The record is a 104-nucleotide sequence from a Rhodospirillales bacterium, which matches "TPP riboswitch aptamer (THI element)" in Rfam. The family's consensus secondary structure is taken from published work. The source organism's lineage runs through Bacteria, Pseudomonadati, Pseudomonadota, Alphaproteobacteria and Rhodospirillales.

RNA sequence: GGGAUCACCGGGGGGAGCCCAAUUCGGGCUGAGAGGUUCGCAAGAACGACCCCGGCAACCUGAUCCGGUUAGUACCGGCGUAGGGACUGGUGACGUACUUGUCG
Numbered sequence: 001g002g003g004a005u006c007a008c009c010g011g012g013g014g015g016a017g018c019c020c021a022a023u024u025c026g027g028g029c030u031g032a033g034a035g036g037u038u039c040g041c042a043a044g045a046a047c048g049a050c051c052c053c054g055g056c057a058a059c060c061u062g063a064u065c066c067g068g069u070u071a072g073u074a075c076c077g078g079c080g081u082a083g084g085g086a087c088u089g090g091u092g093a094c095g096u097a098c099u100u101g102u103c104g
Stems, first nucleotide, its partner, number of pairs: 006092005011053004017029004036047004059084004065078004